Shown here is a 122-nucleotide sequence, a member of the family "Guanidine-I riboswitch aptamer".
The base pairs follow the family's consensus structure.
Rfam links the family to the GO term regulation of gene expression.
Rfam's curators put it in the seed alignment.

RNA sequence: UCUUAGGGGUGCUAGGGUUCCGGUUCAUCGAACGUCUGGUCCGAGAGCAGCCCGGUGCGGGUUCGUCCGAUCGCGAGACCGGACGCACACGCGCUACACGGCGGGACAAAAGCCCGGGAGAU
Number, nucleotide and partner (000 for none) at each position: 001u000002c000003u000004u000005a000006g000007g053008g052009g051010u049011g048012c047013u000014a000015g042016g041017g000018u000019u000020c039021c038022g036023g033024u032025u031026c030027a000028u000029c000030g026031a025032a024033c023034g000035u000036c022037u000038g021039g020040u000041c016042c015043g000044a000045g000046a000047g012048c011049a010050g000051c009052c008053c007054g095055g094056u093057g092058c091059g090060g000061g088062u000063u000064c000065g000066u000067c000068c000069g000070a000071u000072c000073g000074c000075g000076a000077g000078a000079c000080c000081g000082g000083a000084c000085g000086c000087a000088c061089a000090c059091g058092c057093g056094c055095u054096a000097c117098a000099c120100g000101g000102c000103g115104g114105g113106a000107c000108a000109a000110a000111a000112g000113c105114c104115c103116g000117g097118g000119a000120g099121a000122u000